TPP riboswitch aptamer (THI element): a 103-nucleotide RNA sequence from Brevibacterium casei. The family's consensus secondary structure is taken from published work. It scores 61 bits against the family's covariance model. Its family is annotated with thiamine pyrophosphate binding in the Gene Ontology. Rfam's curators write: Vitamin B(1) in its active form thiamin pyrophosphate (TPP) is an essential coenzyme that is synthesised by coupling of pyrimidine and thiazole moieties in bacteria.
[Rfam]
RNA sequence: AGACCACCACAGGGGAGCGCCUGACACGGCGCUGAGAGUGCGAAGGCAGACCCUUACACCUGAUCCGGAUCAUGCCGGCGGAGGAAGUUGGAGGAGACGAAUG
Numbered sequence: 001a002g003a004c005c006a007c008c009a010c011a012g013g014g015g016a017g018c019g020c021c022u023g024a025c026a027c028g029g030c031g032c033u034g035a036g037a038g039u040g041c042g043a044a045g046g047c048a049g050a051c052c053c054u055u056a057c058a059c060c061u062g063a064u065c066c067g068g069a070u071c072a073u074g075c076c077g078g079c080g081g082a083g084g085a086a087g088u089u090g091g092a093g094g095a096g097a098c099g100a101a102u103g
Base pairs, nucleotide, nucleotide: 007090009088010087011054012053013052014051017032018031019030020029021028039048040047041046059084060083061082065078066077067076068075